[Rfam]
Nucleotides: 388
Stems, first nucleotide, its partner, number of pairs: 001384010011373001012330007020037007042371003046368005051220004060263001064216005069083005084101001085099004102211002107209002109205003124151002126147009159177006178200001179198002183194004224287004234278006255270005294313008
Number, partner (000 for none) and nucleotide at each position: 001384u002383c003382a004381g005380c006379c007378g008377g009376c010375c011373g012330g013329g014328c015327g016326g017325c018324c019000g020037c021036u022035u023034c024033g025032g026031c027000u028000c029000a030000c031026g032025c033024c034023g035022g036021g037020g038000a039000g040000g041000a042371a043370a044369g045000u046368c047367c048366g049365g050364g051220c052219u053218c054217c055000a056000u057000u058000g059000a060263g061000a062000c063000a064216c065215g066214g067213u068212g069083c070082c071081g072080g073079a074000u075000a076000a077000c078000g079073u080072c081071c082070g083069g084101c085099g086098a087097g088096g089000c090000c091000u092000u093000g094000c095000g096088c097087c098086u099085c100000a101084g102211g103210g104000a105000a106000a107209g108208u109205g110204c111203c112000a113000c114000a115000g116000a117000a118000a119000g120000c121000a122000g123000a124151c125150c126147g127146c128145c129144g130143c131142c132141g133140g134139g135000u136000u137000c138000g139134c140133c141132c142131g143130g144129c145128g146127g147126u148000c149000a150125g151124g152000g153000u154000g155000a156000a157000a158000g159177g160176g161175u162174g163173c164172g165000g166000u167000a168000a169000g170000a171000g172164c173163g174162c175161a176160c177159c178200g179198c180197g181000g182000a183194c184193g185192c186191g187000g188000c189000g190000a191186c192185g193184c194183g195000g196000a197180c198179g199000g200178c201000a202000c203111g204110g205109c206000a207000a208108a209107c210103c211102c212068c213067a214066c215065c216064g217054g218053g219052a220051g221000c222000a223000a224287g225286a226285u227284c228000g229000a230000a231000u232000a233000g234278g235277g236276g237275c238274g239273a240000c241000a242000g243000c244000g245000g246000c247000u248000u249000g250000c251000c252000g253000c254000a255270g256269g257268c258267c259266u260000g261000u262000c263060u264000c265000a266259g267258g268257g269256c270255c271000c272000g273239u274238c275237g276236c277235c278234c279000g280000g281000g282000u283000u284227g285226a286225u287224u288000g289000c290000u291000c292000g293000a294313g295312g296311c297310g298309g299308c300307c301306g302000g303000c304000a305000a306301c307300g308299g309298c310297c311296g312295u313294c314000c315000c316000a317000g318000a319000g320000g321000a322000a323000u324018g325017g326016c327015c328014g329013c330012c331000a332000c333000g334000g335000c336000c337000g338000g339000a340000c341000c342000g343000c344000a345000a346000g347000g348000u349000c350000c351000g352000g353000c354000c355000c356000a357000u358000a359000c360000a361000g362000a363000a364050c365049c366048c367047g368046g369044c370043u371042u372000a373011c374000a375010g376009g377008c378007c379006g380005g381004c382003u383002g384001a385000c386000c387000c388000u